This 79-nucleotide sequence from Ornithorhynchus anatinus belongs to the Rfam family "mir-219 microRNA precursor family". Taxonomically the source falls in Ornithorhynchus (Eukaryota, Opisthokonta, Deuterostomia, Euteleostomi). On this family, see Lim et al., Science 2003: "Vertebrate microRNA genes". Rfam links the family to the GO terms miRNA-mediated post-transcriptional gene silencing and RISC complex.
RNA sequence: CCCGCCGCUGAUUGUCCAAACGCAAUUCUUGUGCGAGUUUGCGGCCAACCGAGAAUUGUGACUGGACAUCUGUGGCUGG
Numbered sequence: 001c002c003c004g005c006c007g008c009u010g011a012u013u014g015u016c017c018a019a020a021c022g023c024a025a026u027u028c029u030u031g032u033g034c035g036a037g038u039u040u041g042c043g044g045c046c047a048a049c050c051g052a053g054a055a056u057u058g059u060g061a062c063u064g065g066a067c068a069u070c071u072g073u074g075g076c077u078g079g
Stems, first nucleotide, its partner, number of pairs: 002078001004076004010070003014067005021060011